[Rfam]
RNA: ZMP/ZTP riboswitch aptamer (pfl RNA motif)
RNA sequence: AGCGCGGGCCGUGACUGGCGCUGAGGUGGGCUACCACCGGGGAGCGGCCCGGCGGGUUUCAGCACCGCCCUGCCGCGCGCCUGGGCGAUCACU
Numbered sequence: 001a002g003c004g005c006g007g008g009c010c011g012u013g014a015c016u017g018g019c020g021c022u023g024a025g026g027u028g029g030g031c032u033a034c035c036a037c038c039g040g041g042g043a044g045c046g047g048c049c050c051g052g053c054g055g056g057u058u059u060c061a062g063c064a065c066c067g068c069c070c071u072g073c074c075g076c077g078c079g080c081c082u083g084g085g086c087g088a089u090c091a092c093u
Stems, first nucleotide, its partner, number of pairs: 005051008015041002017081005026037004071087004
Dot-bracket structure: ....((((((((..(([[[[[....((((....))))..))..))))))))...................((((..]]]]]..))))......